[Rfam]
RNA sequence: AGAGCAUCACAACGGCUUCCUGACGUGGUGCGUAAUUUUUAUUGGAGCA
Numbered sequence: 001a002g003a004g005c006a007u008c009a010c011a012a013c014g015g016c017u018u019c020c021u022g023a024c025g026u027g028g029u030g031c032g033u034a035a036u037u038u039u040u041a042u043u044g045g046a047g048c049a
Stems, first nucleotide, its partner, number of pairs: 004031007013022002015048003019045002